Rfam assigns this 45-nucleotide RNA from Chryseobacterium sp. Leaf394 to the family "Acido-Lenti-1 RNA". The base pairs follow the family's consensus structure, which is taken from published work. The match comes from Rfam's covariance-model search (38 bits). Taxonomically the source falls in Chryseobacterium (Bacteria, Bacteroidota, Flavobacteriia, Weeksellaceae).
Nucleotides: 045
Base pairs, nucleotide, nucleotide: 002018003017004016005015006014007013008012032044033043034042035041036040
Number, partner (000 for none) and nucleotide at each position: 001000a002018a003017u004016a005015g006014g007013a008012u009000u010000g011000c012008a013007u014006c015005c016004u017003a018002u019000g020000c021000u022000u023000u024000a025000u026000u027000a028000a029000a030000u031000c032044g033043u034042c035041c036040c037000u038000u039000c040036g041035g042034g043033a044032c045000u